Record summary
This 142-nucleotide RNA sequence from Hyella patelloides belongs to the Rfam family "Guanidine-I riboswitch aptamer". Rfam describes the family as follows. This family represents a conserved RNA structure found upstream of the ykkC and yxkD genes in Bacillus subtilis and related genes in other bacteria. The function of this family is unclear although it has been suggested that it may function to switch on efflux pumps and detoxification systems in response to harmful environmental molecules. It scores 78 bits against the family's covariance model.
RNA sequence: AAUAUUUGCUUCUAGGGUUCCGAUUUAAGAGUUUAAAGUUUUUAAAUGACUGGUCCAAGAGAGGCAGGCUAACUGGAAUUUUUAACAACAGACAAUUUGUUUCAAGUCAGUAGCUACACGGCGGGAUAAAAGCCCGGGAGGA
Numbered sequence: 001a002a003u004a005u006u007u008g009c010u011u012c013u014a015g016g017g018u019u020c021c022g023a024u025u026u027a028a029g030a031g032u033u034u035a036a037a038g039u040u041u042u043u044a045a046a047u048g049a050c051u052g053g054u055c056c057a058a059g060a061g062a063g064g065c066a067g068g069c070u071a072a073c074u075g076g077a078a079u080u081u082u083u084a085a086c087a088a089c090a091g092a093c094a095a096u097u098u099g100u101u102u103c104a105a106g107u108c109a110g111u112a113g114c115u116a117c118a119c120g121g122c123g124g125g126a127u128a129a130a131a132g133c134c135c136g137g138g139a140g141g142a
Stems, first nucleotide, its partner, number of pairs: 007066006015056002020053002022050001023047010067115005117137001119140001123135003